[Rfam]
RNA: FMN riboswitch aptamer (RFN element)
Organism: Pelagimonas phthalicica
RNA sequence: GUGCACUCUCAGGGCGGGGUGAAAUUCCCUACCGGCGGUAUGCAGUUUUCUGCGAGCCCGCGAGCGGCUUGGGCAGCCCCCAAGUGUCAGCAGAUCCGGUGAGAGGCCGGAGCCGACGGUGAAAGUCCGGAUGGAAGAGAGCGGAC
Number, nucleotide and partner (000 for none) at each position: 001g000002u000003g000004c143005a000006c141007u140008c139009u138010c137011a000012g000013g000014g000015c000016g000017g029018g028019g027020u000021g000022a000023a000024a000025u000026u000027c019028c018029c017030u000031a126032c125033c115034g114035g061036c060037g059038g058039u000040a000041u000042g000043c000044a000045g000046u000047u000048u000049u000050c000051u000052g000053c000054g000055a000056g113057c112058c038059c037060g036061c035062g000063a000064g091065c090066g000067g000068c000069u000070u000071g000072g000073g000074c000075a000076g000077c000078c000079c000080c000081c000082a000083a000084g000085u000086g000087u000088c000089a000090g065091c064092a000093g000094a000095u111096c110097c109098g108099g107100u000101g000102a000103g000104a000105g000106g000107c099108c098109g097110g096111a095112g057113c056114c034115g033116a000117c129118g128119g127120u000121g000122a000123a000124a000125g032126u031127c119128c118129g117130g000131a000132u000133g000134g000135a000136a000137g010138a009139g008140a007141g006142c000143g004144g000145a000146c000